RNA sequence: GGGGGGGGGAGGUUGUCCCUCAGCCAGGAUUGCGAGAGGGGGCAGACCAGGCUGAGGGACCCCACCAGUGCACA
Numbered sequence: 001g002g003g004g005g006g007g008g009g010a011g012g013u014u015g016u017c018c019c020u021c022a023g024c025c026a027g028g029a030u031u032g033c034g035a036g037a038g039g040g041g042g043c044a045g046a047c048c049a050g051g052c053u054g055a056g057g058g059a060c061c062c063c064a065c066c067a068g069u070g071c072a073c074a
Stems, first nucleotide, its partner, number of pairs: 001071001003069001006066002012063001015060011027048002030045004